[Rfam]
RNA sequence: UAUAAAACUGUCGUCAAUGGACUUGACAGUCAGGAUAUUUAUAUCCUGUGCUGACUGGACAUUCGACGACCUGACCUGUAUGAGCAAGUAAGGCAUUUGCCUGGAUUGCGAAUACAGGUAGCGAUUGCGGGAGCACCAAAGUGCGGAGCAAUCGGCUUUCCUU
Number, nucleotide and partner (000 for none) at each position: 001u000002a162003u000004a000005a159006a158007a157008c000009u000010g070011u069012c068013g067014u000015c000016a000017a063018u000019g000020g060021a000022c058023u057024u000025g055026a000027c053028a052029g051030u050031c000032a000033g046034g045035a044036u043037a042038u000039u000040u000041a000042u037043a036044u035045c034046c033047u000048g000049u000050g030051c029052u028053g027054a000055c025056u000057g023058g022059a000060c020061a000062u000063u017064c000065g000066a000067c013068g012069a011070c010071c000072u000073g000074a119075c118076c117077u116078g115079u114080a113081u112082g000083a000084g109085c108086a107087a106088g000089u000090a000091a102092g101093g100094c099095a000096u000097u000098u000099g094100c093101c092102u091103g000104g000105a000106u087107u086108g085109c084110g000111a000112a081113u080114a079115c078116a077117g076118g075119u074120a000121g000122c154123g153124a152125u151126u150127g149128c148129g000130g000131g000132a000133g144134c143135a142136c141137c000138a000139a000140a000141g136142u135143g134144c133145g000146g000147a000148g128149c127150a126151a125152u124153c123154g122155g000156c000157u007158u006159u005160c000161c000162u002163u000
RNA: Clostridiales-1 RNA